[Rfam]
RNA sequence: UCACCGUACCUUUGGGCCAAAGAAGGAGCGUUCACGUCGCGGUCCCUGUCAGGCAACUACGUUACCUGCGAAUCCUUCU
Numbered sequence: 001u002c003a004c005c006g007u008a009c010c011u012u013u014g015g016g017c018c019a020a021a022g023a024a025g026g027a028g029c030g031u032u033c034a035c036g037u038c039g040c041g042g043u044c045c046c047u048g049u050c051a052g053g054c055a056a057c058u059a060c061g062u063u064a065c066c067u068g069c070g071a072a073u074c075c076u077u078c079u
Stems, first nucleotide, its partner, number of pairs: 014045005021079007028040003050068004055063002
Dot-bracket structure: .............[[[[[..((((((((((.......)))]]]]]....((((.((.....)).))))....)))))))

The record is a 79-nucleotide RNA sequence from Branchiostoma belcheri, which matches "Mammalian CPEB3 ribozyme" in Rfam. The match comes from Rfam's covariance-model search (57 bits).